Notes
The record is a 102-nucleotide RNA sequence from Paenibacillus protaetiae, which matches "Purine riboswitch aptamer" in Rfam. The family's consensus secondary structure is taken from published work. Rfam links the family to the GO term purine nucleobase biosynthetic process.
[Rfam]
Nucleotides: 102
Base pairs, nucleotide, nucleotide: 018088020086021085022084023083024082025081029048030047031046032045033044034043035042057078059074060073061072062071063070
Number, partner (000 for none) and nucleotide at each position: 001000u002000u003000a004000c005000a006000u007000g008000a009000c010000a011000u012000a013000c014000a015000c016000a017000u018088c019000c020086c021085u022084u023083g024082u025081a026000u027000a028000a029048g030047c031046u032045c033044g034043u035042u036000a037000a038000u039000u040000g041000g042035a043034a044033c045032g046031a047030g048029c049000g050000u051000c052000u053000c054000g055000a056000c057078c058000a059074g060073g061072c062071a063070a064000c065000c066000g067000u068000a069000a070063u071062u072061g073060c074059c075000c076000c077000a078057g079000g080000c081025u082024a083023c084022a085021a086020g087000a088018g089000g090000u091000g092000c093000c094000a095000a096000a097000u098000a099000a100000a101000g102000c